[Rfam]
RNA sequence: UCCUGUUUUCUGCAACAGGUAUUCUACCGGGACGUGCUUUCGGAGUAAUCUGAUGGUGCGAAGCUUCCGGGACAAUGAAGCCCGUGGGGACUUGAUCUCCAGAAGAGGAAACCGCGAGGGGACCUCAACUUCUGCCAGCAUCGGGGCGGUAGGGGGC
Numbered sequence: 001u002c003c004u005g006u007u008u009u010c011u012g013c014a015a016c017a018g019g020u021a022u023u024c025u026a027c028c029g030g031g032a033c034g035u036g037c038u039u040u041c042g043g044a045g046u047a048a049u050c051u052g053a054u055g056g057u058g059c060g061a062a063g064c065u066u067c068c069g070g071g072a073c074a075a076u077g078a079a080g081c082c083c084g085u086g087g088g089g090a091c092u093u094g095a096u097c098u099c100c101a102g103a104a105g106a107g108g109a110a111a112c113c114g115c116g117a118g119g120g121g122a123c124c125u126c127a128a129c130u131u132c133u134g135c136c137a138g139c140a141u142c143g144g145g146g147c148g149g150u151a152g153g154g155g156g157c
Stems, first nucleotide, its partner, number of pairs: 002019006028069005033060006040053005086099004102129001105126001112119002132149005
This 157-nucleotide RNA belongs to the Rfam family "Group II catalytic intron D1-D4-7". For this family Rfam cites "The ins and outs of group II introns" (Bonen and Vogel, Trends Genet, 2001). The pairing is the family consensus, mapped onto this sequence. About the family: Group II introns are found in rRNA, tRNA and mRNA of organelles in fungi, plants and protists, and also in mRNA in bacteria.